Shown here is a 101-nucleotide RNA sequence from Tatumella ptyseos, a member of the family "TPP riboswitch aptamer (THI element)". Lineage of the source: Bacteria > Pseudomonadati > Enterobacterales > Tatumella > Tatumella ptyseos. Gene Ontology term of the family: thiamine pyrophosphate binding.

RNA sequence: GGUAUCUUGUCGGAGUGCCCCCCGGGGCUGAGACCGUUAAUUCGGGAUCCGCGGAACCUGAUCAGGUUAGUACCUGCGAAGGGAACAAGAGUACAGUCCAG
Numbered sequence: 001g002g003u004a005u006c007u008u009g010u011c012g013g014a015g016u017g018c019c020c021c022c023c024g025g026g027g028c029u030g031a032g033a034c035c036g037u038u039a040a041u042u043c044g045g046g047a048u049c050c051g052c053g054g055a056a057c058c059u060g061a062u063c064a065g066g067u068u069a070g071u072a073c074c075u076g077c078g079a080a081g082g083g084a085a086c087a088a089g090a091g092u093a094c095a096g097u098c099c100a101g
Stems, first nucleotide, its partner, number of pairs: 006089005011051004016045001017028004035044002057082003063076004